The family of this 81-nucleotide RNA sequence from Acipenser ruthenus is "mir-26 microRNA precursor family". It scores 80 bits against the family's covariance model. Lineage of the source: Eukaryota > Actinopterygii > Chondrostei > Acipenserini > Acipenser.
RNA sequence: CUGGUGCCUGUUUCAAGUAAUCCAGGAUAGGCUGGUCCUAUCCAGCAAAGCCUAUUCUGGACGACUUGGUACAGGAACCAG
Numbered sequence: 001c002u003g004g005u006g007c008c009u010g011u012u013u014c015a016a017g018u019a020a021u022c023c024a025g026g027a028u029a030g031g032c033u034g035g036u037c038c039u040a041u042c043c044a045g046c047a048a049a050g051c052c053u054a055u056u057c058u059g060g061a062c063g064a065c066u067u068g069g070u071a072c073a074g075g076a077a078c079c080a081g
Stems, first nucleotide, its partner, number of pairs: 002080004007075005014068005021061002024058010